[Rfam]
RNA: emrB-Lactobacillus RNA
RNA sequence: UACUCAGCAUAUUCGAUAGUAUGCAUUUUAAUAUAAUCAGUUAUUGAUUAAAGAAAGAGUAG
Numbered sequence: 001u002a003c004u005c006a007g008c009a010u011a012u013u014c015g016a017u018a019g020u021a022u023g024c025a026u027u028u029u030a031a032u033a034u035a036a037u038c039a040g041u042u043a044u045u046g047a048u049u050a051a052a053g054a055a056a057g058a059g060u061a062g
Base pairs, nucleotide, nucleotide: 002060003059004058005057007024008023009022010021011020012019013018034050035049036048037047038046039045040044